This 366-nucleotide RNA sequence from Emericellopsis cladophorae belongs to the Rfam family "Nuclear RNase P". The match comes from Rfam's covariance-model search (59 bits). Clan: RNaseP clan.
RNA sequence: GUCAACGCUGCGUUUCCAUGCUCCAUACGGAGAGAUUUCUCGUUCUCGAACCUGAAAUCUCUCGCUCUCUUUGCAUGUGGGAAAUUCAGGGUAAUGCUCACUUCCUUCGGGAAGGCCUCGCCUCCCUCUCGUCCCUCUGGACGAUGCAUAGGCCUGCCAGUGAUGGCCUGGCGUCAAUUGACGUCUGCAAUCGGCAUCAGAAAUCUCAGAGCCUGGGCGCGCCGGAACCUUCGGGGGAUGGAGAUGUCCCAGUGUCUCUAUGGGAGUCGUUGCUGAGCUUGUUGAGUAAAACUUGAGUGCGAUACGCGGCAUGUCGUCCUCCUUCGUCUGGGGGAUGCGGCAUAACUCAAUCCUGAUCAUUCUGAC
Number, nucleotide and partner (000 for none) at each position: 001g000002u365003c364004a363005a000006c000007g310008c309009u308010g307011c306012g305013u304014u000015u000016c000017c077018a076019u075020g074021c000022u000023c000024c000025a000026u000027a000028c000029g000030g063031a062032g061033a060034g059035a058036u057037u056038u055039c054040u000041c000042g000043u000044u000045c000046u000047c000048g000049a000050a000051c000052c000053u000054g039055a038056a037057a036058u035059c034060u033061c032062u031063c030064g000065c000066u000067c000068u000069c000070u000071u000072u000073g000074c020075a019076u018077g017078u000079g000080g000081g000082a000083a000084a000085u000086u000087c355088a354089g353090g352091g351092u000093a000094a000095u000096g278097c277098u276099c275100a000101c000102u000103u000104c000105c000106u000107u000108c000109g000110g000111g000112a000113a000114g000115g000116c000117c000118u000119c000120g000121c000122c000123u000124c000125c000126c000127u000128c000129u000130c000131g000132u000133c000134c000135c000136u000137c000138u000139g000140g000141a000142c000143g000144a000145u000146g000147c000148a000149u000150a000151g000152g000153c000154c000155u000156g000157c000158c000159a000160g000161u000162g000163a000164u000165g000166g000167c000168c000169u000170g185171g184172c183173g182174u181175c180176a000177a000178u000179u000180g175181a174182c173183g172184u171185c170186u000187g273188c272189a271190a270191u269192c000193g268194g000195c000196a000197u000198c000199a000200g000201a000202a000203a000204u000205c000206u000207c000208a259209g258210a257211g000212c000213c000214u000215g000216g000217g000218c000219g000220c000221g000222c000223c000224g000225g000226a000227a000228c000229c000230u000231u000232c000233g000234g000235g000236g000237g000238a000239u000240g000241g000242a000243g000244a000245u000246g000247u000248c000249c000250c000251a000252g000253u000254g000255u000256c000257u210258c209259u208260a000261u000262g000263g000264g000265a000266g000267u000268c193269g191270u190271u189272g188273c187274u000275g099276a098277g097278c096279u000280u000281g000282u000283u000284g000285a000286g000287u000288a000289a000290a000291a000292c000293u000294u000295g000296a000297g000298u000299g000300c000301g000302a000303u000304a013305c012306g011307c010308g009309g008310c007311a343312u342313g341314u340315c339316g338317u337318c000319c000320u000321c000322c000323u000324u000325c000326g000327u000328c000329u000330g000331g000332g000333g000334g000335a000336u000337g317338c316339g315340g314341c313342a312343u311344a000345a000346c000347u000348c000349a000350a000351u091352c090353c089354u088355g087356a000357u000358c000359a000360u000361u000362c000363u004364g003365a002366c000